[Rfam]
RNA sequence: UUCUUAUCAAGAGCAGGUGGAGGGACUGGCCCGAUGAAGCCCGGCAACCGACUUAAACGAUGUUUAAGCACGGUGCUAAAUCUUGCAGCAAUUGCUGGCAGAUAAGGA
Numbered sequence: 001u002u003c004u005u006a007u008c009a010a011g012a013g014c015a016g017g018u019g020g021a022g023g024g025a026c027u028g029g030c031c032c033g034a035u036g037a038a039g040c041c042c043g044g045c046a047a048c049c050g051a052c053u054u055a056a057a058c059g060a061u062g063u064u065u066a067a068g069c070a071c072g073g074u075g076c077u078a079a080a081u082c083u084u085g086c087a088g089c090a091a092u093u094g095c096u097g098g099c100a101g102a103u104a105a106g107g108a
Base pairs, nucleotide, nucleotide: 001108002107003106004105005104006103007102008101013042016041017040018039022032023031024030026085028083029082043077044076045075046074048073049072050069053066081100086097087096088095089094
RNA: SAM riboswitch aptamer (S box leader)